[Rfam]
RNA: mir-135 microRNA precursor family
Organism: Alligator mississippiensis
Nucleotides: 087
Stems, first nucleotide, its partner, number of pairs: 002086005008080006015073009026063012
Number, partner (000 for none) and nucleotide at each position: 001000g002086u003085c004084c005083c006082a007000c008080u009079g010078u011077g012076u013075u014000a015073u016072a017071u018070g019069g020068c021067u022066u023065u024000u025000u026063a027062u028061u029060c030059c031058u032057a033056u034055g035054u036053g037052a038000u039000u040000a041000u042000a043000c044000u045000a046000c047000u048000c049000c050000u051000u052037u053036c054035a055034u056033a057032u058031a059030g060029g061028g062027a063026u064000u065023g066022a067021a068020g069019c070018c071017g072016u073015g074000c075013a076012a077011u078010a079009c080008g081000c082006u083005g084004g085003g086002g087000a